[Rfam]
Nucleotides: 067
Stems, first nucleotide, its partner, number of pairs: 001065008010056002013053010024042001027034001
Number, partner (000 for none) and nucleotide at each position: 001065u002064g003063g004062a005061g006060a007059a008058g009000g010056g011055g012000a013053g014052c015051a016050c017049g018048u019047g020046c021045a022044a023000c024042u025000g026000c027034a028000a029000a030000g031000u032000g033000g034027u035000a036000u037000a038000u039000u040000a041000c042024g043000u044022u045021u046020g047019c048018a049017c050016g051015u052014g053013c054000c055011c056010u057000g058008c059007u060006u061005c062004u063003c064002c065001a066000a067000c
MIR164 microRNA precursor family: a 67-nucleotide RNA from Beta vulgaris. The base pairs follow the family's consensus structure, which was predicted with RNAalifold. It scores 66 bits against the family's covariance model. A reference for the family is Reinhart et al. (2002), "MicroRNAs in plants", Genes Dev. The organism belongs to Beta vulgaris, within Eukaryota.